[Rfam]
RNA sequence: AGGCCCAGAGAGAGAAGCAGGGGCUGAUCGGCAGCCUCCGUGGCAGCUGCUGAUCAGCCCUUGCCUCUCUCUCUUUCCAGG
Numbered sequence: 001a002g003g004c005c006c007a008g009a010g011a012g013a014g015a016a017g018c019a020g021g022g023g024c025u026g027a028u029c030g031g032c033a034g035c036c037u038c039c040g041u042g043g044c045a046g047c048u049g050c051u052g053a054u055c056a057g058c059c060c061u062u063g064c065c066u067c068u069c070u071c072u073c074u075u076u077c078c079a080g081g
Base pairs, nucleotide, nucleotide: 008073009072010071011070012069013068014067015066017064018063019062020061022059024057025056026055027054028053029052032049033048034047035046